[Rfam]
RNA sequence: AAACUCUACUGGGGGUGCCCUGCACGGGCUGAGAUGAGGAAGUCCUCAAACCCUUGGAACCUGAUCUGGAUGAAGCCAGCGGAGGAAAGUAGAUCGCGAUCGAG
Numbered sequence: 001a002a003a004c005u006c007u008a009c010u011g012g013g014g015g016u017g018c019c020c021u022g023c024a025c026g027g028g029c030u031g032a033g034a035u036g037a038g039g040a041a042g043u044c045c046u047c048a049a050a051c052c053c054u055u056g057g058a059a060c061c062u063g064a065u066c067u068g069g070a071u072g073a074a075g076c077c078a079g080c081g082g083a084g085g086a087a088a089g090u091a092g093a094u095c096g097c098g099a100u101c102g103a104g
Base pairs, nucleotide, nucleotide: 006092007091008090009089010088011054012053013052014051016048017029018028019027020026036047037046038045039044060085061084062083066079067078068077069076
Dot-bracket structure: .....(((((((((.(((((.....))))......((((....)))))..)))).....(((...((((......))))...)))..)))))............